[Rfam]
MIR5565 microRNA precursor family: a 109-nucleotide RNA from Miscanthus lutarioriparius. It scores 82 bits against the family's covariance model.
RNA sequence: GCAUGUGUAUCCACUCCAAUCCACGUGUGUUGGAGUGGAUUAGAAUGUAACUUAAUUUAAUUUCUACUUCAAUCCACCUCAGCACAUGUGGAUUGAGAUGUAUACGUAU
Numbered sequence: 001g002c003a004u005g006u007g008u009a010u011c012c013a014c015u016c017c018a019a020u021c022c023a024c025g026u027g028u029g030u031u032g033g034a035g036u037g038g039a040u041u042a043g044a045a046u047g048u049a050a051c052u053u054a055a056u057u058u059a060a061u062u063u064c065u066a067c068u069u070c071a072a073u074c075c076a077c078c079u080c081a082g083c084a085c086a087u088g089u090g091g092a093u094u095g096a097g098a099u100g101u102a103u104a105c106g107u108a109u
Stems, first nucleotide, its partner, number of pairs: 004108007012100002017095016035077007043069001046066002